A member of the RNA family "msiK RNA" from Conyzicola lurida, 58 nucleotides long. A search with the family's covariance model found it, with a score of 58 bits. The source organism's lineage runs through Bacteria, Bacillati, Micrococcales, Microbacteriaceae and Conyzicola.
[Rfam]
RNA sequence: GGUCACUUUCCAUUCACUCGGAUCGUCCGGCACGUACCUGCCGGUGAAGGAGCAUUAA
Numbered sequence: 001g002g003u004c005a006c007u008u009u010c011c012a013u014u015c016a017c018u019c020g021g022a023u024c025g026u027c028c029g030g031c032a033c034g035u036a037c038c039u040g041c042c043g044g045u046g047a048a049g050g051a052g053c054a055u056u057a058a
Stems, first nucleotide, its partner, number of pairs: 010050002013048004027044006